Nucleotides: 234
Stems, first nucleotide, its partner, number of pairs: 011220004019039007042214005051060002061200003069178007181194002184192001
Number, partner (000 for none) and nucleotide at each position: 001000g002000u003000a004000u005000u006000a007000a008000a009000a010000a011220u012219g013218c014217c015000g016000a017000a018000u019039c020038c021037c022036a023035g024034u025033a026000a027000u028000a029000u030000u031000u032000a033025u034024a035023c036022u037021g038020g039019g040000u041000a042214c043213g044212g045211g046210g047000g048000a049000a050000c051060c052059a053000a054000u055000u056000a057000c058000u059052u060051g061200g062199g063198g064000u065000g066000a067000a068000u069178c070177c071176c072175a073174u074173u075172u076000g077000c078000g079000c080000c081000a082000u083000g084000c085000g086000u087000g088000u089000a090000a091000u092000a093000u094000u095000a096000g097000u098000g099000u100000g101000a102000a103000a104000g105000a106000g107000g108000a109000c110000a111000a112000g113000c114000c115000u116000g117000c118000c119000c120000g121000u122000u123000a124000u125000u126000u127000u128000u129000g130000g131000u132000u133000g134000a135000g136000a137000g138000u139000a140000g141000c142000c143000a144000u145000g146000g147000g148000g149000c150000g151000c152000c153000a154000c155000g156000a157000c158000a159000c160000a161000c162000u163000a164000a165000u166000u167000u168000g169000g170000c171000a172075a173074a174073a175072u176071g177070g178069g179000u180000a181194g182193g183000g184192u185000a186000u187000c188000u189000u190000u191000c192184a193182c194181c195000g196000a197000a198063c199062c200061c201000g202000c203000c204000a205000g206000c207000u208000a209000a210046c211045c212044c213043c214042g215000g216000a217014g218013g219012c220011g221000c222000u223000a224000a225000g226000a227000a228000a229000g230000g231000g232000g233000c234000a
Background
Shown here is a 234-nucleotide RNA sequence from Pelotomaculum schinkii, a member of the family "c-di-AMP riboswitch aptamer (ydaO/yuaA leader)". From the family's description: This family represents a conserved RNA structure found upstream of the ydaO and yuaA genes in Bacillus subtilis and related genes in other bacteria. The ydaO/yuaA element is thought to act as a genetic 'off' switch for the ydaO and yuaA genes in its native state. It is believed that the element may be triggered during osmotic shock leading to activation of ydaO, a predicted amino acid transporter gene, and members of the yuaA-yubG operon which code for KtrA and KtrB K+ transporters.